[Rfam]
RNA: Glutamine-II riboswitch aptamer
RNA sequence: GUACGUUGGCCCGGCAGUAGUCGGGCGCAGUCAGAACCGAGCCACGCAACGGGGGCCGGU
Number, nucleotide and partner (000 for none) at each position: 001g000002u000003a000004c051005g050006u049007u048008g047009g000010c025011c024012c023013g022014g021015c000016a000017g000018u000019a000020g000021u014022c013023g012024g011025g010026c000027g000028c000029a000030g000031u000032c000033a000034g000035a000036a060037c059038c058039g057040a000041g056042c054043c053044a000045c000046g000047c008048a007049a006050c005051g004052g000053g043054g042055g000056c041057c039058g038059g037060u036